Shown here is a 383-nucleotide RNA from Pseudomonas oryzae, a member of the family "Pseudomonas sRNA CrcZ". Taxonomically the source falls in Pseudomonas (Bacteria, Pseudomonadota, Gammaproteobacteria, Pseudomonadaceae). It scores 223 bits against the family's covariance model. The base pairs follow the family's consensus structure, which was predicted with WAR.
RNA sequence: ACAACAAAAACAAGAACGCCGAACCAACACAACAAGAACAAGACGCAUCGACUCCAACAGAACAAGAACAACAGGGUGGAGGCGCAGCAAACUGAUCGUUUUGGAGAGGACCAGCGCGACGAGGGCAUGCCUCGACCGGCCGAGAACAAUAAAACUGCCAGCAGGCAGCGGCCCGAACCGGUAGGCGACUGAUCAGCGUCCAAAGCAAUCCGUUUGUUCCUAGAUCCCGACCUGGGAUCGGCACCGGAUCCACGCAUCCGGGCGGGUCAACGACAAGAACAACAAGCCCGCAAGACCAACAAGAACAAAGCACGACCAGACACUUGAAGGGGGAGCCUCGGCUCCCCCUUGUGCUUCCCGGCCUGCCAGCCCGUCCCCCUCCC
Numbered sequence: 001a002c003a004a005c006a007a008a009a010a011c012a013a014g015a016a017c018g019c020c021g022a023a024c025c026a027a028c029a030c031a032a033c034a035a036g037a038a039c040a041a042g043a044c045g046c047a048u049c050g051a052c053u054c055c056a057a058c059a060g061a062a063c064a065a066g067a068a069c070a071a072c073a074g075g076g077u078g079g080a081g082g083c084g085c086a087g088c089a090a091a092c093u094g095a096u097c098g099u100u101u102u103g104g105a106g107a108g109g110a111c112c113a114g115c116g117c118g119a120c121g122a123g124g125g126c127a128u129g130c131c132u133c134g135a136c137c138g139g140c141c142g143a144g145a146a147c148a149a150u151a152a153a154a155c156u157g158c159c160a161g162c163a164g165g166c167a168g169c170g171g172c173c174c175g176a177a178c179c180g181g182u183a184g185g186c187g188a189c190u191g192a193u194c195a196g197c198g199u200c201c202a203a204a205g206c207a208a209u210c211c212g213u214u215u216g217u218u219c220c221u222a223g224a225u226c227c228c229g230a231c232c233u234g235g236g237a238u239c240g241g242c243a244c245c246g247g248a249u250c251c252a253c254g255c256a257u258c259c260g261g262g263c264g265g266g267u268c269a270a271c272g273a274c275a276a277g278a279a280c281a282a283c284a285a286g287c288c289c290g291c292a293a294g295a296c297c298a299a300c301a302a303g304a305a306c307a308a309a310g311c312a313c314g315a316c317c318a319g320a321c322a323c324u325u326g327a328a329g330g331g332g333g334a335g336c337c338u339c340g341g342c343u344c345c346c347c348c349u350u351g352u353g354c355u356u357c358c359c360g361g362c363c364u365g366c367c368a369g370c371c372c373g374u375c376c377c378c379c380u381c382c383c
Stems, first nucleotide, its partner, number of pairs: 049084002052081004099205005115198003135182005155168005223239005259365005264289004308356004329348008
The family's RNA type in Rfam is small RNA.
The literature on the family includes a 2006 paper in Nucleic Acids Res by Livny et al., "Identification of 17 Pseudomonas aeruginosa sRNAs and prediction of sRNA-encoding genes in 10 diverse pathogens using the bioinformatic tool sRNAPredict2".
Rfam 15.1 lists 127 matches to the family in 96 species.